[Rfam]
RNA sequence: CGUCACGAGUACUGGCGCGAAGCCCCGGCUGGCCAGUCGGCAACCCUCCUCCGCGGCGGGGUGCCCCGGGUGAGGACACGGCCGACUGCGACCGCAGCCGGCAAGCGCGGACU
Numbered sequence: 001c002g003u004c005a006c007g008a009g010u011a012c013u014g015g016c017g018c019g020a021a022g023c024c025c026c027g028g029c030u031g032g033c034c035a036g037u038c039g040g041c042a043a044c045c046c047u048c049c050u051c052c053g054c055g056g057c058g059g060g061g062u063g064c065c066c067c068g069g070g071u072g073a074g075g076a077c078a079c080g081g082c083c084g085a086c087u088g089c090g091a092c093c094g095c096a097g098c099c100g101g102c103a104a105g106c107g108c109g110g111a112c113u
Base pairs, nucleotide, nucleotide: 002077003076004075009038011037012036013035014034015033016032021030022029039065040064041063044061045060046059048056049055081102082101083100084099086097087096088095089094

Shown here is a 113-nucleotide sequence from Nocardioides sp. JS614, a member of the family "SAM (S-adenosyl methionine) riboswitch aptamer". Its Rfam clan is "SAM clan". SAM-IV is a mRNA element that regulates gene expression via direct sensing of S-adenosylmethionine (SAM or AdoMet). SAM-IV riboswitches share conserved nucleotide positions with the previously described SAM-I riboswitches sequence analysis and molecular recognition experiments suggest that SAM-I and SAM-IV riboswitches share similar ligand binding sites, but have different scaffolds. A reference for the family is Weinberg et al. (2008), "The aptamer core of SAM-IV riboswitches mimics the ligand-binding site of SAM-I riboswitches", RNA.